[Rfam]
This 112-nucleotide RNA sequence from Gracilibacillus halotolerans belongs to the Rfam family "SAM riboswitch aptamer (S box leader)". Rfam links the family to the GO term regulation of gene expression. Lineage of the source: Bacteria > Bacillota > Bacilli > Bacillaceae > Gracilibacillus.
RNA sequence: UUCUUAUCAAGAGAGGUGGAGGGACUGGCCCUAUGAAACCUCGGCAACCAUUAAGCAAUCGUGCUUAAUACAGGUGCCAAUUCCACUAGACAAAUGUCUGGAGAGAUGAGAG
Dot-bracket structure: ((((((((....(((((...(((..[[[)))......)))))((((.((((((((........))))))...))))))...(]]]((((((....))))))..)))))))))